[Rfam]
RNA sequence: GCCUCCGUGGCGAAAUGGUAUACGCAGUCGACUUAAAAUCGAUCGCUUCGGCUUGCGGGUUCGAGUCCCGCCGGAGGCA
Dot-bracket structure: (((((((..(((..........))).(((((.......)))))...........(((((.......)))))))))))).
Background
The record is a 79-nucleotide RNA from Bifidobacterium jacchi, which matches "tRNA" in Rfam. Lineage of the source: Bacteria > Actinomycetota > Bifidobacteriales > Bifidobacteriaceae > Bifidobacterium. A search with the family's covariance model found it, with a score of 61 bits. It is annotated as a transfer RNA.